[Rfam]
RNA: MIR444 microRNA precursor family
Organism: Oryza sativa
RNA sequence: GGGGCAGCAAGCUAGAGGUGGCAACUGCAUAAUUUGCAAGAAAUUGUUGGCUGAAGAUCAUACCGAUGAUAUUCUUGCAAGUUAUGCAGUUGCUGCCUCAAGCUUGCUGCCUCC
Numbered sequence: 001g002g003g004g005c006a007g008c009a010a011g012c013u014a015g016a017g018g019u020g021g022c023a024a025c026u027g028c029a030u031a032a033u034u035u036g037c038a039a040g041a042a043a044u045u046g047u048u049g050g051c052u053g054a055a056g057a058u059c060a061u062a063c064c065g066a067u068g069a070u071a072u073u074c075u076u077g078c079a080a081g082u083u084a085u086g087c088a089g090u091u092g093c094u095g096c097c098u099c100a101a102g103c104u105u106g107c108u109g110c111c112u113c114c
Base pairs, nucleotide, nucleotide: 008106009105010104011103012102015099016098018096019095028086029085030084033081035079036078037077038076039075042072045068